[Rfam]
RNA sequence: AAGAGCCUCAAACCAAUAAAGAUUAAGGAGGUUGGCUCAAGAACAAA
Numbered sequence: 001a002a003g004a005g006c007c008u009c010a011a012a013c014c015a016a017u018a019a020a021g022a023u024u025a026a027g028g029a030g031g032u033u034g035g036c037u038c039a040a041g042a043a044c045a046a047a
Base pairs, nucleotide, nucleotide: 007041008040011037013035014034015033016032017031
RNA: Plastid-rpl16 group II-D1 intron
Organism: Carnegiea gigantea